This 109-nucleotide sequence from Herbiconiux oxytropis belongs to the Rfam family "Glycine riboswitch aptamer". The match comes from Rfam's covariance-model search (55 bits). Rfam links the family to the GO term glycine biosynthetic process.
RNA sequence: CAGGCCGACGCGGGAGAGCCGGCGCACACCUCCACCGAGGCGACUGCGAAGGCACCGAAGGAGCAAUCCUCCCCGAUAAUCUCUCAGGUCCUCGUACCGCGUCGAACUG
Numbered sequence: 001c002a003g004g005c006c007g008a009c010g011c012g013g014g015a016g017a018g019c020c021g022g023c024g025c026a027c028a029c030c031u032c033c034a035c036c037g038a039g040g041c042g043a044c045u046g047c048g049a050a051g052g053c054a055c056c057g058a059a060g061g062a063g064c065a066a067u068c069c070u071c072c073c074c075g076a077u078a079a080u081c082u083c084u085c086a087g088g089u090c091c092u093c094g095u096a097c098c099g100c101g102u103c104g105a106a107c108u109g
Base pairs, nucleotide, nucleotide: 006104007103008102009101010100011099012098013097020051054089055088056087057085058084061083062082063081067076068075
This family represents the bacterial glycine riboswitch.